[Rfam]
RNA sequence: GAAAAGGGUACAUCGGCUAAAGGCGCCACGUCCUGCGGCAACGCCGAUAUGCCCUACAUCCUGUAGG
Numbered sequence: 001g002a003a004a005a006g007g008g009u010a011c012a013u014c015g016g017c018u019a020a021a022g023g024c025g026c027c028a029c030g031u032c033c034u035g036c037g038g039c040a041a042c043g044c045c046g047a048u049a050u051g052c053c054c055u056a057c058a059u060c061c062u063g064u065a066g067g
Stems, first nucleotide, its partner, number of pairs: 012048006025039003029035001053067005
Dot-bracket structure: ...........((((((.......(((.(.....).)))...))))))....(((((.....)))))
Source information:
A member of the RNA family "Bacillaceae-1 RNA" from Peribacillus faecalis, 67 nucleotides long. Pairs were carried over by alignment from the consensus structure, which is taken from published work. It scores 72 bits against the family's covariance model.